[Rfam]
Background
A member of the RNA family "Small nucleolar RNA SNORA51" from Castor canadensis, 132 nucleotides long. NCBI's taxonomy places the organism under Eukaryota, Tetrapoda, Mammalia, Boreoeutheria, Castor. It is annotated as an H/ACA-box small nucleolar RNA. Rfam 15.1 lists 2,121 matches to the family in 210 species. ACA51 is a member of the H/ACA class of snoRNA that guide the sites of modification of uridines to pseudouridines. A search with the family's covariance model found it, with a score of 132 bits. Its family is annotated with RNA processing and nucleolus in the Gene Ontology.
RNA sequence: GGCCUCCUGGUGCUUACCACAGGCUGUGUUCUUACACUGACUGCAUAAAAAGAGGAGACAAAGUAAACCUACUCCAUAUACACCUCGGCCCAGACCCUGUGCCUGUUCUGUACUGUGAACGGGGAGACAAGG
Number, nucleotide and partner (000 for none) at each position: 001g000002g059003c000004c057005u056006c055007c054008u053009g000010g000011u000012g000013c000014u000015u000016a000017c000018c000019a000020c043021a042022g041023g000024c000025u000026g037027u036028g035029u034030u000031c000032u000033u000034a029035c028036a027037c026038u000039g000040a000041c022042u021043g020044c000045a000046u000047a000048a000049a000050a000051a000052g000053a008054g007055g006056a005057g004058a000059c002060a000061a000062a000063g000064u000065a000066a000067a000068c000069c000070u000071a000072c124073u123074c122075c121076a000077u119078a000079u000080a000081c000082a000083c000084c000085u000086c110087g109088g108089c000090c000091c105092a104093g103094a000095c101096c000097c000098u000099g000100u000101g095102c000103c093104u092105g091106u000107u000108c088109u087110g086111u000112a000113c000114u000115g000116u000117g000118a000119a077120c000121g075122g074123g073124g072125a000126g000127a000128c000129a000130a000131g000132g000